[Rfam]
A member of the RNA family "Bacterial RNase P class A" from Dictyobacter alpinus, 382 nucleotides long.
Rfam links the family to the GO terms dimeric ribonuclease P complex, tRNA processing and ribonuclease P activity.
It scores 295 bits against the family's covariance model.
Lineage of the source: Bacteria > Bacillati > Ktedonobacteria > Ktedonobacterales > Dictyobacter.
RNA sequence: UGAGGAAGACAGGUAAUCGCGGACCUUUGGGUCCGAGGAAAGUCCGAACUCCAUAGAGCAGAGAUGCUGGCUAACGGCCAGUGAGGGUGACCUCAAGGAAAGUGCAACAGAAACAUACCGCCCGGGCUUUUAUGUUCGGGUAAGGGCGAAAUGGUGAGGUAAGAGCUCACCAGCAGCCAGGUGACUGGUUGGCUGGGCAAACCCCAUCUGGAGCAAGACUAAACAGAAGAUUCUGAUCUUUGAUCGGGCAGGUUGCUCGCCUGUUUAUCUUCGGGUUGGUCGCUUGAGACUCAGGGUAACCUGUGUCCUAGAUAGAUGAUUACCGCCUGUAGCUGCGUAAGCGGCCGCGGGUACAAAAUUCGGCUUAUGGCUUCCUCAAACC
Dot-bracket structure: ((((((((.(((((((((.((((((....))))))....[[[.[[[[[((((...[[[[..((((((((((.....)))))(((((....)))).)((...((((............((((((((((......))))))))..)).......((((((.......)))))).((((((((....))))))).)...))..)))))))))))))...((((.....((((((.................(((((.]]]])))))...)))))).....))))......(((.((((....)))).)))..........)))))))..................................]]]]]]]].)).))))))))....
The family's RNA type in Rfam is ribozyme.